[Rfam]
RNA sequence: UUUCCGUUACGAUGUUGACUUCCGCUCCUCUGUGGUAAUAUAUCAACUAGAGGGACCUGUAGUCAACACGACAUGGAA
Dot-bracket structure: .((((((..((.((((((((.(.(.(((.((.((((.........)))).))))).).).))))))))))..))))))

The record is a 78-nucleotide RNA sequence from Branchiostoma belcheri, which matches "mir-4869 microRNA precursor family" in Rfam. The base pairs follow the family's consensus structure, which was predicted with RNAalifold.